[Rfam]
RNA sequence: CGAUAUGCUGUGGUAUCAGGGUCCAGUGAUAUUAAACCCCGUAAUUCGGGGUUUUUUAUUAUCUGAAACAUGACCAUUCAGGUAUCUACUGGGCUUUAUAGCCCUUUUUUU
Numbered sequence: 001c002g003a004u005a006u007g008c009u010g011u012g013g014u015a016u017c018a019g020g021g022u023c024c025a026g027u028g029a030u031a032u033u034a035a036a037c038c039c040c041g042u043a044a045u046u047c048g049g050g051g052u053u054u055u056u057u058a059u060u061a062u063c064u065g066a067a068a069c070a071u072g073a074c075c076a077u078u079c080a081g082g083u084a085u086c087u088a089c090u091g092g093g094c095u096u097u098a099u100a101g102c103c104c105u106u107u108u109u110u111u
Stems, first nucleotide, its partner, number of pairs: 034054008091104004